[Rfam]
RNA sequence: GAUAACCAAAAAUAACAAAUGGAUUCAAAGUCGGAUUCGUAACAACUCGUACAUCAUGUAUUGCAGAGUCAUACAAUCCACCAAAGAACAUGGCUUUUGCUACUAGUAGUAAAGCUCCUGCUCCCAGGAAAAGUAAGUGAUGUCCUAAAAUCAAACCAAGUUGUUUAGGGUCAUUCCA
Numbered sequence: 001g002a003u004a005a006c007c008a009a010a011a012a013u014a015a016c017a018a019a020u021g022g023a024u025u026c027a028a029a030g031u032c033g034g035a036u037u038c039g040u041a042a043c044a045a046c047u048c049g050u051a052c053a054u055c056a057u058g059u060a061u062u063g064c065a066g067a068g069u070c071a072u073a074c075a076a077u078c079c080a081c082c083a084a085a086g087a088a089c090a091u092g093g094c095u096u097u098u099g100c101u102a103c104u105a106g107u108a109g110u111a112a113a114g115c116u117c118c119u120g121c122u123c124c125c126a127g128g129a130a131a132a133g134u135a136a137g138u139g140a141u142g143u144c145c146u147a148a149a150a151u152c153a154a155a156c157c158a159a160g161u162u163g164u165u166u167a168g169g170g171u172c173a174u175u176c177c178a
Stems, first nucleotide, its partner, number of pairs: 136175006144169005
A member of the RNA family "Antisense RNA which regulates isiA expression" from Calothrix sp. C42_A2020_038, 178 nucleotides long.